This 114-nucleotide RNA from Sinobaca qinghaiensis belongs to the Rfam family "SAM riboswitch aptamer (S box leader)". Rfam's curators write: The SAM riboswitch is found upstream of a number of genes which code for proteins involved in methionine or cysteine biosynthesis in Gram-positive bacteria. The match comes from Rfam's covariance-model search (67 bits). The source organism's lineage runs through Bacteria, Bacilli, Caryophanales, Sporolactobacillaceae and Sinobaca.

RNA sequence: CUCUUAUCCCGAGCUGGUGGAGGGACAGGCCCUGCGAAACCCGGCAACCAUCCGAAAGUAUGAAACGGAAAGGUGCUAACCUGGAGAGACGACUGUCGUCUUGGAAGAUAAGAG
Numbered sequence: 001c002u003c004u005u006a007u008c009c010c011g012a013g014c015u016g017g018u019g020g021a022g023g024g025a026c027a028g029g030c031c032c033u034g035c036g037a038a039a040c041c042c043g044g045c046a047a048c049c050a051u052c053c054g055a056a057a058g059u060a061u062g063a064a065a066c067g068g069a070a071a072g073g074u075g076c077u078a079a080c081c082u083g084g085a086g087a088g089a090c091g092a093c094u095g096u097c098g099u100c101u102u103g104g105a106a107g108a109u110a111a112g113a114g
Stems, first nucleotide, its partner, number of pairs: 001114008013042001016041003022032003029082001043077004048073002051069004086102006